[Rfam]
RNA sequence: AAUUGCCAAGGUCGGAAAUGGUUCCCGACACACUCCGAAAAGAGUAUCUGAGAUGAUGGAUACACCGCCCAUCUGGUGAUU
Dot-bracket structure: ((((((((..(((((...[[[[..))))).(((((......))))....)....(((((....]]]].)))))))))))))
skipping-rope RNA: an 81-nucleotide RNA. Rfam's curators put it in the seed alignment. The family's RNA type in Rfam is small RNA.